[Rfam]
RNA sequence: GGGGAUGAACUUAGAGUCCCCAACGUAUGGGAGUGUUAAUAGUCGCACUUUUGGCCAGGUUCGACGGUUAGUGAAUC
Numbered sequence: 001g002g003g004g005a006u007g008a009a010c011u012u013a014g015a016g017u018c019c020c021c022a023a024c025g026u027a028u029g030g031g032a033g034u035g036u037u038a039a040u041a042g043u044c045g046c047a048c049u050u051u052u053g054g055c056c057a058g059g060u061u062c063g064a065c066g067g068u069u070a071g072u073g074a075a076u077c
Stems, first nucleotide, its partner, number of pairs: 001021006036071005042065004047060004
A member of the RNA family "L13-Bacteroidia ribosomal protein leader", 77 nucleotides long.
The family's consensus secondary structure is taken from published work.
Rfam classes the family as a cis-regulatory leader.
A reference for the family is Eckert and Weinberg (2020), "Discovery of 20 novel ribosomal leader candidates in bacteria and archaea", BMC Microbiol.